A member of the RNA family "Streptomyces sRNA 4677" from Streptomyces viridochromogenes, 225 nucleotides long. The family's RNA type in Rfam is small RNA. The base pairs follow the family's consensus structure. Rfam describes the family as follows. Located in the intergenic region between anti-sigma factor SCO4677 gene and a putative regulatory protein gene SCO4676. scr4677 expression requires the SCO4677 activity and scr4677 sRNA itself seem to affect the levels of the SCO4676-associated transcripts. Rfam 15.1 lists 563 matches to the family in 285 species. The match comes from Rfam's covariance-model search (70 bits). Lineage of the source: Bacteria > Actinomycetota > Actinomycetes > Streptomyces > Streptomyces viridochromogenes. On this family, see Hindra et al., PLoS One 2014: "Complex intra-operonic dynamics mediated by a small RNA in Streptomyces coelicolor".
[Rfam]
RNA sequence: GGGUCCGGCGGGCCGCUGACCUCCCUAAAGAACCGGGGGAAAGAACUACCCGCCCACCCACCCUCCCCGGUCAGGGAGCCCGAGUCACCCGUCCGAGUGUCCGGCUUGCAGCAGCGGGUAACGGACCGUUACGUUCGCCGCGACAACCCCACACAGAUACGGCCCCCGGCCGGGACGGCAAUCCCGAUCGAGGGCCUGACCGAUCAGGAAGCAAGCACCUUCCCG
Numbered sequence: 001g002g003g004u005c006c007g008g009c010g011g012g013c014c015g016c017u018g019a020c021c022u023c024c025c026u027a028a029a030g031a032a033c034c035g036g037g038g039g040a041a042a043g044a045a046c047u048a049c050c051c052g053c054c055c056a057c058c059c060a061c062c063c064u065c066c067c068c069g070g071u072c073a074g075g076g077a078g079c080c081c082g083a084g085u086c087a088c089c090c091g092u093c094c095g096a097g098u099g100u101c102c103g104g105c106u107u108g109c110a111g112c113a114g115c116g117g118g119u120a121a122c123g124g125a126c127c128g129u130u131a132c133g134u135u136c137g138c139c140g141c142g143a144c145a146a147c148c149c150c151a152c153a154c155a156g157a158u159a160c161g162g163c164c165c166c167c168g169g170c171c172g173g174g175a176c177g178g179c180a181a182u183c184c185c186g187a188u189c190g191a192g193g194g195c196c197u198g199a200c201c202g203a204u205c206a207g208g209a210a211g212c213a214a215g216c217a218c219c220u221u222c223c224c225g
Base pairs, nucleotide, nucleotide: 007204009202010201015071016070017069018068086099087098088097090095114138115137116136117135161196162195163194164193165192167190168189172185173184174183175182207223208222209221210220211219
Dot-bracket structure: ......(.((....((((.................................................))))..............(((.(....).)))..............((((.................))))......................(((((.((...((((......))))...)).)))))....)).)..(((((.......)))))..